[Rfam]
RNA sequence: GCUGAUUUAGUAUAACGGCUAUUACUCCGGCUUUGUAACCCGGGAAUGGGAGUUCGAUUCUCUCAAUCAGCA
Dot-bracket structure: (((((((..(((..........))).((((.........))))....(((((.......)))))))))))).
This 72-nucleotide sequence from Schiekvirus 163 belongs to the Rfam family "tRNA". About the family: Transfer RNA (tRNA) molecules are approximately 80 nucleotides in length. Their secondary structure includes four short double-helical elements and three loops (D, anti-codon, and T loops). Further hydrogen bonds mediate the characteristic L-shaped molecular structure. tRNAs have two regions of fundamental functional importance: the anti-codon, which is responsible for specific mRNA codon recognition, and the 3' end, to which the tRNAs corresponding amino acid is attached (by aminoacyl-tRNA synthetases). tRNAs cope with the degeneracy of the genetic code in two manners: having more than one tRNA (with a specific anti-codon) for a particular amino acid; and 'wobble' base-pairing, i.e. permitting non-standard base-pairing at the 3rd anti-codon position. The family's RNA type in Rfam is transfer RNA.